[Rfam]
RNA sequence: AGAUGAGGUAGAGGCGCGACUAACAUGAGUAGCUUUGUCUGAGGAUGACAACGUUGACGAAAAGUAAAAGGGGAAGUCGCCGAAGUAGUAACAGGUGUCGAACUGUUUCUUGCUGGAACUGCAUUGAAUAAGUGCAGGGCUGUCAUAGCUUGAGGAGCGCUCAAGCUAUGGAGGACUACCAUUCAA
Numbered sequence: 001a002g003a004u005g006a007g008g009u010a011g012a013g014g015c016g017c018g019a020c021u022a023a024c025a026u027g028a029g030u031a032g033c034u035u036u037g038u039c040u041g042a043g044g045a046u047g048a049c050a051a052c053g054u055u056g057a058c059g060a061a062a063a064g065u066a067a068a069a070g071g072g073g074a075a076g077u078c079g080c081c082g083a084a085g086u087a088g089u090a091a092c093a094g095g096u097g098u099c100g101a102a103c104u105g106u107u108u109c110u111u112g113c114u115g116g117a118a119c120u121g122c123a124u125u126g127a128a129u130a131a132g133u134g135c136a137g138g139g140c141u142g143u144c145a146u147a148g149c150u151u152g153a154g155g156a157g158c159g160c161u162c163a164a165g166c167u168a169u170g171g172a173g174g175a176c177u178a179c180c181a182u183u184c185a186a
Stems, first nucleotide, its partner, number of pairs: 007180005016080006024072001032065005038059001084114003087110002090107005115141002119137007143171010
Rfam assigns this 186-nucleotide RNA sequence from Halalkalibacter krulwichiae to the family "Lysine riboswitch aptamer". A search with the family's covariance model found it, with a score of 112 bits.